[Rfam]
RNA sequence: UAAUCAUCCUGAACAGUGUUUCAAAUGAUUU
Numbered sequence: 001u002a003a004u005c006a007u008c009c010u011g012a013a014c015a016g017u018g019u020u021u022c023a024a025a026u027g028a029u030u031u
Stems, first nucleotide, its partner, number of pairs: 002030006010023004014018001
Dot-bracket structure: .((((((..(((((...).)))).)))))).
This 31-nucleotide RNA sequence from Bambusicola thoracicus belongs to the Rfam family "Iron response element II".
The family's RNA type in Rfam is cis-regulatory element.
Pairs were carried over by alignment from the consensus structure, which is taken from published work.
For this family Rfam cites "A cytosolic protein binds to structural elements within the iron regulatory region of the transferrin receptor mRNA" (Koeller et al., Proc Natl Acad Sci U S A, 1989).
The organism belongs to Bambusicola, within Eukaryota.
Rfam describes the family as follows. IRE, TFRC, SLC40A1, SDHB, SLC11A2, CDC42BPA, ACO2, ALAS2_H.SAPIENS, CDC14A, EPAS1, ALAS2, qoxD, Hao1, NDUFS1, transferrin, Aconitate.